[Rfam]
RNA: mir-16 microRNA precursor family
RNA sequence: GCUUUACUCUAGCAGCACUGUUAAUAUUGGAAAAUGUGCUAGUUCACUCCAAUAUUUACGUGCUGCUAAAGCACCGC
Numbered sequence: 001g002c003u004u005u006a007c008u009c010u011a012g013c014a015g016c017a018c019u020g021u022u023a024a025u026a027u028u029g030g031a032a033a034a035u036g037u038g039c040u041a042g043u044u045c046a047c048u049c050c051a052a053u054a055u056u057u058a059c060g061u062g063c064u065g066c067u068a069a070a071g072c073a074c075c076g077c
Stems, first nucleotide, its partner, number of pairs: 001077002005073001007071001010070001011067008021058001023056008